Source information
The record is a 457-nucleotide part of an RNA from Samia ricini, which matches "Eukaryotic large subunit ribosomal RNA" in Rfam. The base pairs follow the family's consensus structure, which is taken from published work. Lineage of the source: Eukaryota > Mandibulata > Panorpida > Bombycoidea > Samia.
RNA sequence: GGCUCGUCGUUGCGAUAGUAAUACUGCUCAGUACGAGAGGAACCGCAGUUUCGGACAUUUGGUUCAUGCACUCGGCCGAGCGGCCGGUGGUGCGAAGCUACCAUCCGCGGGAUUAUGCCUGAACGCCUCUAAGGCCGAAGCCAGCCUAGCCGAAUCCGGCAAGGAUAUGCUCACUGUGGAGCCCCGAGAGUCGGGAGGCUCUAAACAAAGUGACUUUACUAGUCGCGCUCCACUCCGGUGAGGCGCGACGUCGAAGCCCAUUCGGAUCUCGGAGAUCGGCGCGGUCGGUUCUUUAACGCGUGCGCCACGGCUCCGAUACGGUCCGGACUCACCUCAGUUCGAUGUCGGGGCUCGGAAUAGUCUGUAGACGACUUCCGUUCCUGGCGGGGUGUUGUGCUCGGUAGAGCAGCGUCGUGCUGCGAUCUGUUGAGACUCAGCCCUACGCCAGGUGAUUCGU
Numbered sequence: 001g002g003c004u005c006g007u008c009g010u011u012g013c014g015a016u017a018g019u020a021a022u023a024c025u026g027c028u029c030a031g032u033a034c035g036a037g038a039g040g041a042a043c044c045g046c047a048g049u050u051u052c053g054g055a056c057a058u059u060u061g062g063u064u065c066a067u068g069c070a071c072u073c074g075g076c077c078g079a080g081c082g083g084c085c086g087g088u089g090g091u092g093c094g095a096a097g098c099u100a101c102c103a104u105c106c107g108c109g110g111g112a113u114u115a116u117g118c119c120u121g122a123a124c125g126c127c128u129c130u131a132a133g134g135c136c137g138a139a140g141c142c143a144g145c146c147u148a149g150c151c152g153a154a155u156c157c158g159g160c161a162a163g164g165a166u167a168u169g170c171u172c173a174c175u176g177u178g179g180a181g182c183c184c185c186g187a188g189a190g191u192c193g194g195g196a197g198g199c200u201c202u203a204a205a206c207a208a209a210g211u212g213a214c215u216u217u218a219c220u221a222g223u224c225g226c227g228c229u230c231c232a233c234u235c236c237g238g239u240g241a242g243g244c245g246c247g248a249c250g251u252c253g254a255a256g257c258c259c260a261u262u263c264g265g266a267u268c269u270c271g272g273a274g275a276u277c278g279g280c281g282c283g284g285u286c287g288g289u290u291c292u293u294u295a296a297c298g299c300g301u302g303c304g305c306c307a308c309g310g311c312u313c314c315g316a317u318a319c320g321g322u323c324c325g326g327a328c329u330c331a332c333c334u335c336a337g338u339u340c341g342a343u344g345u346c347g348g349g350g351c352u353c354g355g356a357a358u359a360g361u362c363u364g365u366a367g368a369c370g371a372c373u374u375c376c377g378u379u380c381c382u383g384g385c386g387g388g389g390u391g392u393u394g395u396g397c398u399c400g401g402u403a404g405a406g407c408a409g410c411g412u413c414g415u416g417c418u419g420c421g422a423u424c425u426g427u428u429g430a431g432a433c434u435c436a437g438c439c440c441u442a443c444g445c446c447a448g449g450u451g452a453u454u455c456g457u
Base pairs, nucleotide, nucleotide: 006166007165008164010162011161012160013159016148017147018146021051023049024048025047026046027045052107053106054105055104060100061099062098067094068093069092070091071090072087073086074085075084076083077082110142111141117135118134119133120132181351182350183349184348185347186346187345355455356454357453358452360376364372381448382447383446384445385444386443387440388439389438391433392432399426400425401424403423406420407419408418409417410416